[Rfam]
RNA sequence: AAAGAAAUCCCUUUACAACGGAUCGUGAGGCACGUACCUGCCUCUGAAAGGAUGACAAAUC
Numbered sequence: 001a002a003a004g005a006a007a008u009c010c011c012u013u014u015a016c017a018a019c020g021g022a023u024c025g026u027g028a029g030g031c032a033c034g035u036a037c038c039u040g041c042c043u044c045u046g047a048a049a050g051g052a053u054g055a056c057a058a059a060u061c
Stems, first nucleotide, its partner, number of pairs: 009051002012048004027044006
RNA: msiK RNA